[Rfam]
RNA: c-di-AMP riboswitch aptamer (ydaO/yuaA leader)
RNA sequence: GCGUGGCCUCCGCCGAAUCCGGUGCACCCUGGGGUGCGGCCGGAGCCGGGGACCCGACCGACUUCGGGGUGAAUCGGCCAACGCCCUUCAGGGCGACGGCCGUCGGGCACGCCUUCCGGAACCGACCGCCCGAACCCGACAGCUGACUCGGUAGGCGGAGGACGGAAGGAGU
Number, nucleotide and partner (000 for none) at each position: 001g000002c000003g000004u000005g000006g000007c000008c000009u000010c000011c157012g156013c155014c154015g000016a000017a000018u044019c043020c042021g041022g040023u039024g000025c000026a000027c000028c000029c000030u000031g000032g000033g000034g000035u000036g000037c000038g000039g023040c022041c021042g020043g019044a018045g152046c151047c150048g149049g148050g147051g000052a000053c000054c000055c066056g065057a000058c000059c000060g000061a000062c000063u000064u000065c056066g055067g137068g136069g135070u000071g000072a000073a000074u000075c102076g101077g100078c099079c000080a000081a000082c000083g000084c000085c000086c000087u000088u000089c000090a000091g000092g000093g000094c000095g000096a000097c000098g000099g078100c077101c076102g075103u000104c000105g131106g130107g129108c128109a000110c000111g000112c000113c000114u000115u000116c000117c000118g000119g000120a000121a000122c000123c000124g000125a000126c000127c000128g108129c107130c106131c105132g000133a000134a000135c069136c068137c067138g000139a000140c000141a000142g000143c000144u000145g000146a000147c050148u049149c048150g047151g046152u045153a000154g014155g013156c012157g011158g000159a000160g000161g000162a000163c000164g000165g000166a000167a000168g000169g000170a000171g000172u000